[Rfam]
RNA sequence: CGGCAUGAUACCGAGGGCUGUGGCUGGGUGCAGCCACGGGAUCUCCAGCUGCAGCACAUAAGAGCAAGCUGGAGAGACCCACAGCGCAGGGCAGCUGAUUCCUGCAGCUGCCGCUCGCCUUCCUCGUAACA
Numbered sequence: 001c002g003g004c005a006u007g008a009u010a011c012c013g014a015g016g017g018c019u020g021u022g023g024c025u026g027g028g029u030g031c032a033g034c035c036a037c038g039g040g041a042u043c044u045c046c047a048g049c050u051g052c053a054g055c056a057c058a059u060a061a062g063a064g065c066a067a068g069c070u071g072g073a074g075a076g077a078c079c080c081a082c083a084g085c086g087c088a089g090g091g092c093a094g095c096u097g098a099u100u101c102c103u104g105c106a107g108c109u110g111c112c113g114c115u116c117g118c119c120u121u122c123c124u125c126g127u128a129a130c131a
Stems, first nucleotide, its partner, number of pairs: 011039002016035007071124002074121003084111002087104004
Small nucleolar RNA SNORA44: a 131-nucleotide RNA from Phyllostomus discolor. Its family is annotated with RNA processing and nucleolus in the Gene Ontology. It is annotated as an H/ACA-box small nucleolar RNA. A reference for the family is Huttenhofer et al. (2001), "RNomics: an experimental approach that identifies 201 candidates for novel, small, non-messenger RNAs in mouse", EMBO J. Rfam describes the family as follows. ACA44 is a member of the H/ACA class of snoRNA that guide the sites of modification of uridines to pseudouridines. Pairs were carried over by alignment from the consensus structure, which was predicted with PFOLD.